[Rfam]
HIV gag stem loop 3 (GSL3): an 84-nucleotide RNA sequence from Lentivirus humimdef1.
Rfam describes the family as follows. This family consists of several HIV gag stem loop 3 (GSL3) sequences.
Rfam's curators put it in the seed alignment.
Lineage of the source: Viruses > Revtraviricetes > Retroviridae > Orthoretrovirinae > Lentivirus humimdef1.
RNA sequence: GACCAGGGAGAAACAAAAAGUAUAAAUUAAAACAUAUAGUAUGGGCAGGCAGGGAGCUAGAACGAUUCGCAAUUGAUCCUGGCC
Numbered sequence: 001g002a003c004c005a006g007g008g009a010g011a012a013a014c015a016a017a018a019a020g021u022a023u024a025a026a027u028u029a030a031a032a033c034a035u036a037u038a039g040u041a042u043g044g045g046c047a048g049g050c051a052g053g054g055a056g057c058u059a060g061a062a063c064g065a066u067u068c069g070c071a072a073u074u075g076a077u078c079c080u081g082g083c084c
Base pairs, nucleotide, nucleotide: 001084003082004081005080006079007078008077